[Rfam]
RNA sequence: AUAGAGCAACAGCUUCUAUGCAGUUUUAGUUGACCCCGAUUAAUCUUCUCGCCCGCCAAAGUGAUGAGAUUAUCGGGGUUUUCGUUU
Dot-bracket structure: (((((.........)))))........(((.((((((((.(((((((..................)))))))))))))))...))).

This 87-nucleotide RNA sequence from Erwinia tracheiphila belongs to the Rfam family "CopA-like RNA".
A reference for the family is Light and Molin (1983), "Post-transcriptional control of expression of the repA gene of plasmid R1 mediated by a small RNA molecule", EMBO J.
The organism belongs to Erwinia, within Bacteria.
In several groups of bacterial plasmids, antisense RNAs regulate copy number through inhibition of replication initiator protein synthesis. These RNAs are characterised by a long hairpin structure interrupted by several unpaired residues or bulged loops. In plasmid R1, the inhibitory complex between the antisense RNA (CopA) and its target mRNA (CopT) is characterised by a four-way junction structure and a side-by-side helical alignment.
By type it is an antisense RNA.
It scores 63 bits against the family's covariance model.
Its family is annotated with mRNA binding in the Gene Ontology.